[Rfam]
RNA sequence: AACUGCCCUGGGCUUUCUAGUCUCAGCUCUCCUGACCAGUCGAGCUGGAGGAGAGCUGAGACUAGAAAGCCCAGGGUAGGU
Numbered sequence: 001a002a003c004u005g006c007c008c009u010g011g012g013c014u015u016u017c018u019a020g021u022c023u024c025a026g027c028u029c030u031c032c033u034g035a036c037c038a039g040u041c042g043a044g045c046u047g048g049a050g051g052a053g054a055g056c057u058g059a060g061a062c063u064a065g066a067a068a069g070c071c072c073a074g075g076g077u078a079g080g081u
Base pairs, nucleotide, nucleotide: 001081003079004078005077006076007075008074009073010072011071012070013069014068015067016066017065018064019063020062021061022060023059024058025057026056027055028054029053030052031051032050033049036048037047038046039045040044
This 81-nucleotide RNA sequence from Chlorocebus sabaeus belongs to the Rfam family "mir-3160 microRNA precursor family".
Gene Ontology terms of the family: RISC complex and miRNA-mediated post-transcriptional gene silencing.
The match comes from Rfam's covariance-model search (90 bits).